[Rfam]
Nucleotides: 100
Stems, first nucleotide, its partner, number of pairs: 002099006
Number, partner (000 for none) and nucleotide at each position: 001000a002099u003098u004097g005096u006095g007094a008000u009000g010000u011000g012000a013000u014000g015000a016000c017000a018000a019000c020000u021000u022000c023000u024000u025000g026000a027000g028000c029000u030000a031000u032000a033000u034000a035000u036000u037000u038000u039000c040000u041000u042000g043000a044000g045000a046000a047000c048000a049000u050000c051000a052000a053000u054000g055000a056000a057000g058000a059000a060000a061000a062000c063000g064000u065000c066000u067000c068000a069000u070000c071000a072000a073000a074000u075000g076000a077000u078000u079000u080000g081000c082000a083000c084000g085000u086000c087000a088000g089000u090000c091000u092000g093000a094007u095006c096005a097004c098003a099002a100000g
Small nucleolar RNA Z122: a 100-nucleotide sequence from Saccharomyces cerevisiae.
Its family is annotated with nucleolus and RNA processing in the Gene Ontology.
The family's RNA type in Rfam is C/D-box small nucleolar RNA.
The base pairs follow the family's consensus structure, which was predicted with PFOLD.
For this family Rfam cites "The high diversity of snoRNAs in plants: identification and comparative study of 120 snoRNA genes from Oryza sativa" (Chen et al., Nucleic Acids Res, 2003).
It is one of the family's seed sequences.